[Rfam]
RNA sequence: GAAAACCCUGCAGGGGCGACCUGAGAACACAUAAUAAAAUACCAAGUACUACAUGUUGUUGCAUCUUAUAUAUGUGUUCUCAUGUCACACCUGUUGGGUAUCU
Numbered sequence: 001g002a003a004a005a006c007c008c009u010g011c012a013g014g015g016g017c018g019a020c021c022u023g024a025g026a027a028c029a030c031a032u033a034a035u036a037a038a039a040u041a042c043c044a045a046g047u048a049c050u051a052c053a054u055g056u057u058g059u060u061g062c063a064u065c066u067u068a069u070a071u072a073u074g075u076g077u078u079c080u081c082a083u084g085u086c087a088c089a090c091c092u093g094u095u096g097g098g099u100a101u102c103u
Base pairs, nucleotide, nucleotide: 007097008096011093012092013091014090016088018086019085023081024080025079026078027077028076029075030074031073032072